[Rfam]
RNA sequence: UAAAAGAUGCGAAUAGACCUUCGUAUAUCCUUAGGAAUAUGGCCUAAGAGUCUCUACCGGAUUACCGUAAACAAUCUGACUAUGAAGGCAGAAUGUAUAUAA
Numbered sequence: 001u002a003a004a005a006g007a008u009g010c011g012a013a014u015a016g017a018c019c020u021u022c023g024u025a026u027a028u029c030c031u032u033a034g035g036a037a038u039a040u041g042g043c044c045u046a047a048g049a050g051u052c053u054c055u056a057c058c059g060g061a062u063u064a065c066c067g068u069a070a071a072c073a074a075u076c077u078g079a080c081u082a083u084g085a086a087g088g089c090a091g092a093a094u095g096u097a098u099a100u101a102a
Stems, first nucleotide, its partner, number of pairs: 018088008030048006058078006
Shown here is a 102-nucleotide sequence from Halalkalibacter krulwichiae, a member of the family "Purine riboswitch aptamer".
The base pairs follow the family's consensus structure, which is taken from published work.
Lineage of the source: Bacteria > Bacillati > Bacilli > Caryophanales > Halalkalibacter.